[Rfam]
RNA: Archaeal large subunit ribosomal RNA, nucleotides 570 to 666
Organism: Candidatus Methanogaster sp.
RNA sequence: GGUAUGGCAUGAAAGGAUCUUCGCCGUGAAGGAGGCAGUCGUGAGGCUGUAGUACGGGCGGCGUUGCCGAUGUCAUAUCAUACGUUUUGAAGAACGG
Numbered sequence: 001g002g003u004a005u006g007g008c009a010u011g012a013a014a015g016g017a018u019c020u021u022c023g024c025c026g027u028g029a030a031g032g033a034g035g036c037a038g039u040c041g042u043g044a045g046g047c048u049g050u051a052g053u054a055c056g057g058g059c060g061g062c063g064u065u066g067c068c069g070a071u072g073u074c075a076u077a078u079c080a081u082a083c084g085u086u087u088u089g090a091a092g093a094a095c096g097g
Base pairs, nucleotide, nucleotide: 001079002078003077004076005075006074007073008072009071010070015068016067022063023062024061025060026059027058031055036049037048038047039046040045083096084095085094
Dot-bracket structure: ((((((((((....((.....((((((...(....(((((....))))).....)..))))))...)).))))))))))...(((........))).